[Rfam]
RNA sequence: GGGCGUUGAUGAAAAUUUAGAGAAAGUCAUGCACCACUCUGACGAUAAUCGUGUGAUGAUAAUUUCUCAUACCCAUACAAUUUCUGAGCCC
Numbered sequence: 001g002g003g004c005g006u007u008g009a010u011g012a013a014a015a016u017u018u019a020g021a022g023a024a025a026g027u028c029a030u031g032c033a034c035c036a037c038u039c040u041g042a043c044g045a046u047a048a049u050c051g052u053g054u055g056a057u058g059a060u061a062a063u064u065u066c067u068c069a070u071a072c073c074c075a076u077a078c079a080a081u082u083u084c085u086g087a088g089c090c091c
Base pairs, nucleotide, nucleotide: 001091002090003089004088

Rfam assigns this 91-nucleotide RNA from Handroanthus impetiginosus to the family "Small nucleolar RNA Z221/R21b". Rfam links the family to the GO terms nucleolus and RNA processing. The literature on the family includes a 2003 paper in Nucleic Acids Res by Chen et al., "The high diversity of snoRNAs in plants: identification and comparative study of 120 snoRNA genes from Oryza sativa". By type it is a C/D-box small nucleolar RNA. The base pairs follow the family's consensus structure, which was predicted with WAR.